[Rfam]
Record summary
The family of this 89-nucleotide sequence from Handroanthus impetiginosus is "Small nucleolar RNA U54".
RNA sequence: GGCUCUGUGAUUACCUGCCUGAUUUUUAGGCAAUAUACGCUAUGCCGAUAAGUAGCAUGAGUAGAUAAAAUUUUAGGAGUAUGAGAGCU
Numbered sequence: 001g002g003c004u005c006u007g008u009g010a011u012u013a014c015c016u017g018c019c020u021g022a023u024u025u026u027u028a029g030g031c032a033a034u035a036u037a038c039g040c041u042a043u044g045c046c047g048a049u050a051a052g053u054a055g056c057a058u059g060a061g062u063a064g065a066u067a068a069a070a071u072u073u074u075a076g077g078a079g080u081a082u083g084a085g086a087g088c089u
Base pairs, nucleotide, nucleotide: 001089002088003087004086005085
Dot-bracket structure: (((((...............................................................................)))))

Rfam's curators write: U54 is a C/D box small nucleolar RNA, which acts as a methylation guide for 18S ribosomal RNA in plants. A reference for the family is Chen et al. (2003), "The high diversity of snoRNAs in plants: identification and comparative study of 120 snoRNA genes from Oryza sativa", Nucleic Acids Res. The family has 21 seed sequences and 614 matches in Rfam 15.1.